[Rfam]
RNA sequence: UGCUCGCUGACAUGCGUCGCUGACCUCGUCAGCACCAUGCCAGCAGCCAGGGUUCGAGGCUGCCGCGGGAUUCCCCGCGAUACCCACCAGUCCGCCUCGCAUCGCACUGCGGACGAGCGUCCACGGACGCAGAUGC
Numbered sequence: 001u002g003c004u005c006g007c008u009g010a011c012a013u014g015c016g017u018c019g020c021u022g023a024c025c026u027c028g029u030c031a032g033c034a035c036c037a038u039g040c041c042a043g044c045a046g047c048c049a050g051g052g053u054u055c056g057a058g059g060c061u062g063c064c065g066c067g068g069g070a071u072u073c074c075c076c077g078c079g080a081u082a083c084c085c086a087c088c089a090g091u092c093c094g095c096c097u098c099g100c101a102u103c104g105c106a107c108u109g110c111g112g113a114c115g116a117g118c119g120u121c122c123a124c125g126g127a128c129g130c131a132g133a134u135g136c
Stems, first nucleotide, its partner, number of pairs: 011039004019033006043063006051083001064079006109136003117130005
RNA: radC RNA
Organism: Pseudothauera nasutitermitis